Rfam assigns this 65-nucleotide RNA from Paralichthys olivaceus to the family "mir-182 microRNA precursor family".
The family is grouped with related families in Rfam's "mir-182 clan".
The family has 28 seed sequences and 676 matches in Rfam 15.1.
The literature on the family includes a 2009 paper in Mol Reprod Dev by Tesfaye et al., "Identification and expression profiling of microRNAs during bovine oocyte maturation using heterologous approach".
Pairs were carried over by alignment from the consensus structure, which was predicted with RNAalifold.
Taxonomically the source falls in Paralichthys (Eukaryota, Eumetazoa, Euacanthomorphacea, Pleuronectoidei).
The sequence is in the family's curated seed alignment.
RNA sequence: UUUGGCAAUGGUAGAACUCACACUGGUGAGGUAGAUGGAUCCGGUGGUUCUAGACUUGCCAACUA
Numbered sequence: 001u002u003u004g005g006c007a008a009u010g011g012u013a014g015a016a017c018u019c020a021c022a023c024u025g026g027u028g029a030g031g032u033a034g035a036u037g038g039a040u041c042c043g044g045u046g047g048u049u050c051u052a053g054a055c056u057u058g059c060c061a062a063c064u065a
Stems, first nucleotide, its partner, number of pairs: 002062007012052006021046006